RNA sequence: CGAAAGGCAAAUCGAAAACACACGAAUAUCGACACACUCUCUCGGGUGCGCACUUUUGCGUUGAGAGAGCGGGAUAUUCGGAGGCUUAAC
Numbered sequence: 001c002g003a004a005a006g007g008c009a010a011a012u013c014g015a016a017a018a019c020a021c022a023c024g025a026a027u028a029u030c031g032a033c034a035c036a037c038u039c040u041c042u043c044g045g046g047u048g049c050g051c052a053c054u055u056u057u058g059c060g061u062u063g064a065g066a067g068a069g070c071g072g073g074a075u076a077u078u079c080g081g082a083g084g085c086u087u088a089a090c
Stems, first nucleotide, its partner, number of pairs: 023080008035071001037069007048061005

A member of the RNA family "t44 RNA" from Suttonella ornithocola, 90 nucleotides long.
The literature on the family includes a 2002 paper in Nucleic Acids Res by Tjaden et al., "Transcriptome analysis of Escherichia coli using high-density oligonucleotide probe arrays".
It is annotated as a small RNA.
The family's consensus secondary structure was predicted with LocARNA.
This family consists of a number of bacterial RNA genes of between 135 and 170 bases in length.
The source organism's lineage runs through Bacteria, Pseudomonadati, Gammaproteobacteria, Cardiobacteriales and Suttonella.